[Rfam]
Mason-Pfizer monkey virus packaging signal: a 270-nucleotide sequence from Mus musculus. It scores 88 bits against the family's covariance model.
RNA sequence: UGGUGCCUAACGUGGGGCUUGAGGAUGAGGCCUUCAGUGAAGAACACUGUGGUGUUUCUGUUCAGACAAUGUUGUGUGGAAGAUGUCCUGCACAGGAGACUGCCUUCUUGACUAGGGAUCCUGGUAAUUCCUCAGUGAUCAUGGGACAGGCACUUAGUAGCCAUGAACUCUUUGGGGAAGGUUUGAAAAAGGCUUUAAUGGCACGGGGGAUAAAGUUUAAAAUACAUGACUUACUUGCAUUUUUUGAUUUUGUAAAAGAGAUUUGUCUAU
Numbered sequence: 001u002g003g004u005g006c007c008u009a010a011c012g013u014g015g016g017g018c019u020u021g022a023g024g025a026u027g028a029g030g031c032c033u034u035c036a037g038u039g040a041a042g043a044a045c046a047c048u049g050u051g052g053u054g055u056u057u058c059u060g061u062u063c064a065g066a067c068a069a070u071g072u073u074g075u076g077u078g079g080a081a082g083a084u085g086u087c088c089u090g091c092a093c094a095g096g097a098g099a100c101u102g103c104c105u106u107c108u109u110g111a112c113u114a115g116g117g118a119u120c121c122u123g124g125u126a127a128u129u130c131c132u133c134a135g136u137g138a139u140c141a142u143g144g145g146a147c148a149g150g151c152a153c154u155u156a157g158u159a160g161c162c163a164u165g166a167a168c169u170c171u172u173u174g175g176g177g178a179a180g181g182u183u184u185g186a187a188a189a190a191g192g193c194u195u196u197a198a199u200g201g202c203a204c205g206g207g208g209g210a211u212a213a214a215g216u217u218u219a220a221a222a223u224a225c226a227u228g229a230c231u232u233a234c235u236u237g238c239a240u241u242u243u244u245u246g247a248u249u250u251u252g253u254a255a256a257a258g259a260g261a262u263u264u265g266u267c268u269a270u
Stems, first nucleotide, its partner, number of pairs: 006030003013024001035049004082120003086117002090112001091110002095103001129146001131145004154197001156195001157193002204246008214232002217229003255270001257268003